[Rfam]
RNA: Wolbachia sRNA 46
RNA sequence: ACAAAUUGUACAUGGUAAAUGAUGUCUUUCCAGUGCUUGACACUGGAAUCCAGAAAACUUAACUUUACACCAGGUAAUAGGAACUGGAUCCCAGUGUCAAGCACUGGGAUGACAUCCUCCUAGUGGAAAUU
Numbered sequence: 001a002c003a004a005a006u007u008g009u010a011c012a013u014g015g016u017a018a019a020u021g022a023u024g025u026c027u028u029u030c031c032a033g034u035g036c037u038u039g040a041c042a043c044u045g046g047a048a049u050c051c052a053g054a055a056a057a058c059u060u061a062a063c064u065u066u067a068c069a070c071c072a073g074g075u076a077a078u079a080g081g082a083a084c085u086g087g088a089u090c091c092c093a094g095u096g097u098c099a100a101g102c103a104c105u106g107g108g109a110u111g112a113c114a115u116c117c118u119c120c121u122a123g124u125g126g127a128a129a130u131u
Base pairs, nucleotide, nucleotide: 011125012124013123023114024113025112026111028109029108030107031106032105033104034103035102036101037100038099039098040097041096042095043094044093045092046091048089049088050087051086052085053084